[Rfam]
RNA sequence: GACGCCUUAAGAUAUAAGCCCUGCCUCUCUUAUAUCGUUGCGGCUCCUUGGCCGCGCCACUGAUUUAAGCGUCUUGUAGUUGU
Numbered sequence: 001g002a003c004g005c006c007u008u009a010a011g012a013u014a015u016a017a018g019c020c021c022u023g024c025c026u027c028u029c030u031u032a033u034a035u036c037g038u039u040g041c042g043g044c045u046c047c048u049u050g051g052c053c054g055c056g057c058c059a060c061u062g063a064u065u066u067a068a069g070c071g072u073c074u075u076g077u078a079g080u081u082g083u
Base pairs, nucleotide, nucleotide: 033062034061037060038059039056040055041054042053043052044051045050
BsrC: an 83-nucleotide sequence. About the family: The 301 nucleotide sequence from Kouji Nakamura has been trimmed to a highly conserved ~85 nucleotide long core to form this family. It scores 50 bits against the family's covariance model. The family's consensus secondary structure was predicted with CMfinder. A reference for the family is Saito et al. (2008), "Novel small RNA-encoding genes in the intergenic regions of Bacillus subtilis", Gene.